[Rfam]
RNA: S15-Flavobacteria ribosomal protein leader
RNA sequence: UAUAUUUGCCGCCUGAAAGAAAAACUUUCACAUACAUAAAAAUCAUUUAAAUAAUAUUGGAAUG
Numbered sequence: 001u002a003u004a005u006u007u008g009c010c011g012c013c014u015g016a017a018a019g020a021a022a023a024a025c026u027u028u029c030a031c032a033u034a035c036a037u038a039a040a041a042a043u044c045a046u047u048u049a050a051a052u053a054a055u056a057u058u059g060g061a062a063u064g
Base pairs, nucleotide, nucleotide: 014030015029016028017027018026019025